[Rfam]
RNA sequence: CGUUCAGAUCUAGACCCUUCUCUUAGAGUAUUUGACAGACUGUGCUUGACACUCGAUCUAAAGGGGUGUCAGUUUGUCAAAUACCCCAAGAGAGGGGACACGAGUC
Numbered sequence: 001c002g003u004u005c006a007g008a009u010c011u012a013g014a015c016c017c018u019u020c021u022c023u024u025a026g027a028g029u030a031u032u033u034g035a036c037a038g039a040c041u042g043u044g045c046u047u048g049a050c051a052c053u054c055g056a057u058c059u060a061a062a063g064g065g066g067u068g069u070c071a072g073u074u075u076g077u078c079a080a081a082u083a084c085c086c087c088a089a090g091a092g093a094g095g096g097g098a099c100a101c102g103a104g105u106c
Base pairs, nucleotide, nucleotide: 020092021091022090023089026086028084029083030082031081032080033079034078035077036076037075038074039073040072041071048070049069050068051067053065054064
mir-223 microRNA precursor family: a 106-nucleotide RNA from Danionella cerebrum.